[Rfam]
RNA sequence: ACAGAUGAAAAGCUGCGAGGCUCGCGCCGUACAGGACGAACGCUUCAGCGUCGUCCACACUUGCGAGCGGGCUAAGGUCUGAGCAUUCUAAUCAUUCUCGAUCGGUCCUAGCAGGAUCCAGCUGUAACCGGCUGCAGCGGCGUAUCAGAAAUCCGACCUCCUAUGCCCUCUUUUUCGCCCUUCGGGGUGGAAGGGUGCCCAAAGAUCGCUGGCCUUCGUGGUGCGCAGGAGGGUGUGGUGUGGGGGGUCUUGGAAGUCGUCGCAAUGAUUGGGUGGUGUGAGGGCACGCUCCGAUUCGCGCCUUCGGGUGUCAGUUGGUUUGGGCGCACAACCAUCCUUUAGCUCACUUCGCAGCGCAUUUAUAUGGGUCCUGUUCGCCUUCGUGUGUCGGGACCCAGAGUGUAACUCGAUUCAGACUACUCUUCGUCUGU
Numbered sequence: 001a002c003a004g005a006u007g008a009a010a011a012g013c014u015g016c017g018a019g020g021c022u023c024g025c026g027c028c029g030u031a032c033a034g035g036a037c038g039a040a041c042g043c044u045u046c047a048g049c050g051u052c053g054u055c056c057a058c059a060c061u062u063g064c065g066a067g068c069g070g071g072c073u074a075a076g077g078u079c080u081g082a083g084c085a086u087u088c089u090a091a092u093c094a095u096u097c098u099c100g101a102u103c104g105g106u107c108c109u110a111g112c113a114g115g116a117u118c119c120a121g122c123u124g125u126a127a128c129c130g131g132c133u134g135c136a137g138c139g140g141c142g143u144a145u146c147a148g149a150a151a152u153c154c155g156a157c158c159u160c161c162u163a164u165g166c167c168c169u170c171u172u173u174u175u176c177g178c179c180c181u182u183c184g185g186g187g188u189g190g191a192a193g194g195g196u197g198c199c200c201a202a203a204g205a206u207c208g209c210u211g212g213c214c215u216u217c218g219u220g221g222u223g224c225g226c227a228g229g230a231g232g233g234u235g236u237g238g239u240g241u242g243g244g245g246g247g248u249c250u251u252g253g254a255a256g257u258c259g260u261c262g263c264a265a266u267g268a269u270u271g272g273g274u275g276g277u278g279u280g281a282g283g284g285c286a287c288g289c290u291c292c293g294a295u296u297c298g299c300g301c302c303u304u305c306g307g308g309u310g311u312c313a314g315u316u317g318g319u320u321u322g323g324g325c326g327c328a329c330a331a332c333c334a335u336c337c338u339u340u341a342g343c344u345c346a347c348u349u350c351g352c353a354g355c356g357c358a359u360u361u362a363u364a365u366g367g368g369u370c371c372u373g374u375u376c377g378c379c380u381u382c383g384u385g386u387g388u389c390g391g392g393a394c395c396c397a398g399a400g401u402g403u404a405a406c407u408c409g410a411u412u413c414a415g416a417c418u419a420c421u422c423u424u425c426g427u428c429u430g431u
Stems, first nucleotide, its partner, number of pairs: 001431004007425003012355007020068005034056006079415005085269003104118005119134006137263006155249013356403006
Shown here is a 431-nucleotide RNA from Cyclocybe aegerita, a member of the family "Nuclear RNase P".
On this family, see Frank and Pace, Annu Rev Biochem 1998: "Ribonuclease P: unity and diversity in a tRNA processing ribozyme".
Clan: RNaseP clan.
Taxonomically the source falls in Cyclocybe (Eukaryota, Opisthokonta, Fungi, Agaricomycetidae).
Rfam classes the family as a ribozyme.
Rfam describes the family as follows. Ribonuclease P (RNase P) is a ubiquitous endoribonuclease, found in archaea, bacteria and eukarya as well as chloroplasts and mitochondria. Its best characterised activity is the generation of mature 5'-ends of tRNAs by cleaving the 5'-leader elements of precursor-tRNAs. Cellular RNase Ps are ribonucleoproteins. RNA from bacterial RNase Ps retains its catalytic activity in the absence of the protein subunit, i.e. it is a ribozyme.